[Rfam]
RNA sequence: AAAGAUUGCAAUGAGGAUAACAAGCUCCCUCUUCCGAGUUAAAGCUGAAGACAAUUGCUGGCAGAAUCGAACCAAUAAUAUCAGCCACUACUGAGCAA
Numbered sequence: 001a002a003a004g005a006u007u008g009c010a011a012u013g014a015g016g017a018u019a020a021c022a023a024g025c026u027c028c029c030u031c032u033u034c035c036g037a038g039u040u041a042a043a044g045c046u047g048a049a050g051a052c053a054a055u056u057g058c059u060g061g062c063a064g065a066a067u068c069g070a071a072c073c074a075a076u077a078a079u080a081u082c083a084g085c086c087a088c089u090a091c092u093g094a095g096c097a098a
Stems, first nucleotide, its partner, number of pairs: 006098004
RNA: Small nucleolar RNA R30/Z108